[Rfam]
RNA sequence: ACUUAAGUGUCUUAUCUAUCUAUAGAUAGAAAAGUCGCUUUUUAGACUUUGUGUCUACUCUUCUCAACUAAACGAAAUUUUUGCUACGGCCGGCAUCUCUGAUGCUGGAGUCGUGGCGUAAUUGAAAUUUCAUUUGGGUUGCAACAGUUUGGAAAUAAGUGCUGUGCGUCCUAGUCUAAGGGUUCUGUGUUCUGUCACGGGAUUCCAUUCUACAAACGCCUUACUCGAGGUUCUGUCUCGUGUUUGUGUGGAAGCAAAGUUCUGUCUUUGUGGAAACCAGUAACUGUUCCUAAUGGCCUGCAACCGUGUGACACUUGCCG
Numbered sequence: 001a002c003u004u005a006a007g008u009g010u011c012u013u014a015u016c017u018a019u020c021u022a023u024a025g026a027u028a029g030a031a032a033a034g035u036c037g038c039u040u041u042u043u044a045g046a047c048u049u050u051g052u053g054u055c056u057a058c059u060c061u062u063c064u065c066a067a068c069u070a071a072a073c074g075a076a077a078u079u080u081u082u083g084c085u086a087c088g089g090c091c092g093g094c095a096u097c098u099c100u101g102a103u104g105c106u107g108g109a110g111u112c113g114u115g116g117c118g119u120a121a122u123u124g125a126a127a128u129u130u131c132a133u134u135u136g137g138g139u140u141g142c143a144a145c146a147g148u149u150u151g152g153a154a155a156u157a158a159g160u161g162c163u164g165u166g167c168g169u170c171c172u173a174g175u176c177u178a179a180g181g182g183u184u185c186u187g188u189g190u191u192c193u194g195u196c197a198c199g200g201g202a203u204u205c206c207a208u209u210c211u212a213c214a215a216a217c218g219c220c221u222u223a224c225u226c227g228a229g230g231u232u233c234u235g236u237c238u239c240g241u242g243u244u245u246g247u248g249u250g251g252a253a254g255c256a257a258a259g260u261u262c263u264g265u266c267u268u269u270g271u272g273g274a275a276a277c278c279a280g281u282a283a284c285u286g287u288u289c290c291u292a293a294u295g296g297c298c299u300g301c302a303a304c305c306g307u308g309u310g311a312c313a314c315u316u317g318c319c320g
Base pairs, nucleotide, nucleotide: 005040006039007038008037009036011034012033013032015030016029017028018027019026020025043057044056045055046054047053074131075130076129077128078127079126080125082118083117084116085115086114087113090108091107092106093105094104095103096102139303140302141301147294148293149292151290152289153288155287156286158285159284160282161281162280163279164278173211174210182203183202184201185200186199187198188197189196223243224242226240227239228238229237248277249276254271255270256269257268258267259266
RNA: Alphacoronavirus 5'UTR
Organism: Alphacoronavirus chicagoense